[Rfam]
RNA sequence: AACGGAGAUGCCGAAAACCGUACAGAGUAGGCG
Dot-bracket structure: .((((....[[[.....))))........]]].

This 33-nucleotide sequence from Bacteroidales bacterium Barb4 belongs to the Rfam family "DUF805b RNA". The base pairs follow the family's consensus structure, which is taken from published work. The family is grouped with related families in Rfam's "DUF805 clan". Lineage of the source: Bacteria > Pseudomonadati > Bacteroidota > Bacteroidia > Bacteroidales. It is annotated as a cis-regulatory element.